Shown here is a 102-nucleotide RNA, a member of the family "DUF3577 RNA".
The base pairs follow the family's consensus structure, which is taken from published work.
Rfam classes the family as a cis-regulatory element.
It is one of the family's seed sequences.
[Rfam]
RNA sequence: CGAUCGCACAGCACCCCUUGGGGUGUCAAACUCGUCUGUAACCCGGCAACGUCAUCCUCGCGAUGGCGUGACGACCCAAUCCGGCAGCCAUGCUGCCGUCAU
Numbered sequence: 001c002g003a004u005c006g007c008a009c010a011g012c013a014c015c016c017c018u019u020g021g022g023g024u025g026u027c028a029a030a031c032u033c034g035u036c037u038g039u040a041a042c043c044c045g046g047c048a049a050c051g052u053c054a055u056c057c058u059c060g061c062g063a064u065g066g067c068g069u070g071a072c073g074a075c076c077c078a079a080u081c082c083g084g085c086a087g088c089c090a091u092g093c094u095g096c097c098g099u100c101a102u
Stems, first nucleotide, its partner, number of pairs: 011026006032074005050068006083097006
Dot-bracket structure: ..........((((((....)))))).....(((((.............((((((.......)))))).)))))........((((((...)))))).....